[Rfam]
The record is a 124-nucleotide RNA from Polioptila caerulea, which matches "Small nucleolar RNA SNORA5" in Rfam.
Clan: SNORA5 clan.
The source organism's lineage runs through Eukaryota, Deuterostomia, Gnathostomata, Neoaves and Polioptila.
Pairs were carried over by alignment from the consensus structure, which was predicted with RNAfold.
A search with the family's covariance model found it, with a score of 40 bits.
From the family's description: ACA5 is a member of the H/ACA class of snoRNA that guide the sites of modification of uridines to pseudouridines.

RNA sequence: CGCAGCCCAGUCAAAUUCGGUCCCUGUCCCCCAGUGUCGGGGACCGGCCACCGGCUGCCACAGCAAGCUCCGUGCCCGCGUGUCCCGUGUCCCCUCCCGUGGGAGCCGGGCAGGCGCGUCCCCA
Number, nucleotide and partner (000 for none) at each position: 001c000002g058003c057004a056005g055006c000007c000008c000009a000010g000011u000012c000013a000014a000015a000016u000017u000018c046019g045020g044021u043022c042023c041024c040025u039026g038027u000028c036029c000030c000031c000032c000033a000034g000035u000036g028037u000038c026039g025040g024041g023042g022043a021044c020045c019046g018047g000048c000049c000050a000051c000052c000053g000054g000055c005056u004057g003058c002059c000060a000061c000062a000063g000064c000065a000066a000067g000068c000069u000070c000071c118072g117073u116074g115075c114076c113077c000078g000079c000080g000081u000082g000083u000084c110085c109086c108087g107088u000089g000090u000091c000092c000093c000094c000095u000096c000097c000098c000099g000100u000101g000102g000103g000104a000105g000106c000107c087108g086109g085110g084111c000112a000113g076114g075115c074116g073117c072118g071119u000120c000121c000122c000123c000124a000